RNA sequence: CUCUUAUCAAGAGUGGCUGAGGGACUGGCCCUAUGACGCCCGGCAACCAGCUCGCAAGAGCAAUGGUGCCAAUUCCAACUAUAUGUAAUCAUAUAGACAGAUGAGAG
Dot-bracket structure: ((((((((....(.(((...(((..[[[)))......))))((((.((.(((......)))...))))))...(]]].((((((......))))))..)))))))))
Shown here is a 107-nucleotide RNA from Anaeromicrobium sediminis, a member of the family "SAM riboswitch aptamer (S box leader)". The source organism's lineage runs through Bacteria, Bacillati, Bacillota, Peptostreptococcales and Anaeromicrobium. The family has 457 seed sequences and 9,625 matches in Rfam 15.1.